[Rfam]
RNA: Bacillus sRNA ncr1575
RNA sequence: UCAAUAAUUUCGAAAGGGAUGAUGGGUGGACAAUGAUUAACUAAUCUUAUUUUUAAAGUUUGAAAACACAUCUUUCAAAACAUACAAAAUAGGAUUAGUCUGCCCAUUUAUAUAGAGUGUGAAAAGCAAUAGAAAUAUCGCUUAUUUAUUCAUGCAACGGUACGACUAAUCCUUCCAAAUCCACUGGGAGGAUUUUUUU
Numbered sequence: 001u002c003a004a005u006a007a008u009u010u011c012g013a014a015a016g017g018g019a020u021g022a023u024g025g026g027u028g029g030a031c032a033a034u035g036a037u038u039a040a041c042u043a044a045u046c047u048u049a050u051u052u053u054u055a056a057a058g059u060u061u062g063a064a065a066a067c068a069c070a071u072c073u074u075u076c077a078a079a080a081c082a083u084a085c086a087a088a089a090u091a092g093g094a095u096u097a098g099u100c101u102g103c104c105c106a107u108u109u110a111u112a113u114a115g116a117g118u119g120u121g122a123a124a125a126g127c128a129a130u131a132g133a134a135a136u137a138u139c140g141c142u143u144a145u146u147u148a149u150u151c152a153u154g155c156a157a158c159g160g161u162a163c164g165a166c167u168a169a170u171c172c173u174u175c176c177a178a179a180u181c182c183a184c185u186g187g188g189a190g191g192a193u194u195u196u197u198u199u
Base pairs, nucleotide, nucleotide: 016111018109023106024105025104026103029100030099031098042097043096044095045094046093047092048091049090050089051088052087053086059079060078061077062076063075064074065073120148121147122146126141127140129138130137131136168194169193170192171191172190173189174188175187176186177185
Dot-bracket structure: ...............(.(....((((..(((..........((((((((((((.....(((((((.......)))))))......)))))))))))))))..))))..).)........(((...((.(((....))).))....)))...................((((((((((.......)))))))))).....